This 65-nucleotide RNA sequence from Hippoglossus hippoglossus belongs to the Rfam family "miR-430 microRNA precursor family". The family has 32 seed sequences and 24,817 matches in Rfam 15.1.
RNA sequence: UGAUCACCUCAAAUAGAGCCACUCAUGAUUACUGGCUUCAUAAGUGCUUCUCUUUGGGGUUGUCU
Numbered sequence: 001u002g003a004u005c006a007c008c009u010c011a012a013a014u015a016g017a018g019c020c021a022c023u024c025a026u027g028a029u030u031a032c033u034g035g036c037u038u039c040a041u042a043a044g045u046g047c048u049u050c051u052c053u054u055u056g057g058g059g060u061u062g063u064c065u
Stems, first nucleotide, its partner, number of pairs: 003063002006060005013054001015051004020046004025041003